[Rfam]
tp2: a 119-nucleotide RNA from Affinibrenneria salicis.

Nucleotides: 119
Stems, first nucleotide, its partner, number of pairs: 001104004023095001025092001037090001039088007048079001050077003054073002057070002
Number, partner (000 for none) and nucleotide at each position: 001104g002103g003102u004101a005000u006000u007000c008000c009000u010000u011000a012000u013000c014000u015000u016000c017000u018000c019000u020000a021000a022000u023095a024000a025092g026000u027000u028000a029000a030000u031000u032000u033000a034000c035000u036000g037090g038000u039088g040087c041086c042085u043084g044083u045082c046000g047000c048079c049000c050077u051076g052075u053000a054073c055072u056000c057070u058069g059000c060000c061000c062000g063000g064000a065000a066000a067000g068000c069058c070057a071000a072055a073054g074000c075052a076051c077050a078000c079048g080000a081000a082045g083044a084043c085042a086041g087040g088039c089000c090037c091000a092025u093000g094000g095023u096000u097000u098000a099000a100000u101004u102003g103002c104001c105000g106000c107000a108000u109000u110000c111000a112000g113000u114000a115000c116000c117000c118000a119000a

For this family Rfam cites "Computational identification of noncoding RNAs in E. coli by comparative genomics" (Rivas et al., Curr Biol, 2001). The match comes from Rfam's covariance-model search (77 bits). The base pairs follow the family's consensus structure, which was predicted with RNAalifold. It is annotated as a small RNA.